[Rfam]
RNA sequence: ACGACCUUACUUGAACAGGAUCUGUUCUAUAGGCUCGUACAACUGUCUCUGAGAACGCUAAUGAGACAGGCAUCCAAGUCUGGUUGAUGAAACGAGGACCUCAGGAUCGGAGCGUGAUUAACGGUGGGGGUCUCUCGAGAUCUUUCACAGUAGGGGAUCGUUCUCAGCUGGUGGUUGCCCCCGGCUGGGGUGAUCCUGGGGUUAUCUGACAGACU
Numbered sequence: 001a002c003g004a005c006c007u008u009a010c011u012u013g014a015a016c017a018g019g020a021u022c023u024g025u026u027c028u029a030u031a032g033g034c035u036c037g038u039a040c041a042a043c044u045g046u047c048u049c050u051g052a053g054a055a056c057g058c059u060a061a062u063g064a065g066a067c068a069g070g071c072a073u074c075c076a077a078g079u080c081u082g083g084u085u086g087a088u089g090a091a092a093c094g095a096g097g098a099c100c101u102c103a104g105g106a107u108c109g110g111a112g113c114g115u116g117a118u119u120a121a122c123g124g125u126g127g128g129g130g131u132c133u134c135u136c137g138a139g140a141u142c143u144u145u146c147a148c149a150g151u152a153g154g155g156g157a158u159c160g161u162u163c164u165c166a167g168c169u170g171g172u173g174g175u176u177g178c179c180c181c182c183g184g185c186u187g188g189g190g191u192g193a194u195c196c197u198g199g200g201g202u203u204a205u206c207u208g209a210c211a212g213a214c215u
Base pairs, nucleotide, nucleotide: 001038002037003035005033006032007031013027014026015025016024017023018022043069044068045067046066048064049063053059078214079213080212081211082210098202099201100200101199102198103197104196105195106194107193108192109191111162112161113160114159121151122150124148125147126146127145128143129142130141131140132139133138164188165187166186167185168184169183170182171181173179
Shown here is a 215-nucleotide RNA sequence from Musa troglodytarum, a member of the family "Plant small nucleolar RNA U3". Rfam classes the family as a C/D-box small nucleolar RNA. Gene Ontology terms of the family: RNA processing and nucleolus. Clan: U3 clan. The match comes from Rfam's covariance-model search (167 bits). The literature on the family includes a 1997 paper in Nucleic Acids Res by Zwieb, "The uRNA database". About the family: Small nucleolar RNAs (snoRNAs) are involved in the processing and modification of rRNA in the nucleolus. NCBI's taxonomy places the organism under Eukaryota, Viridiplantae, Mesangiospermae, Petrosaviidae, Musa.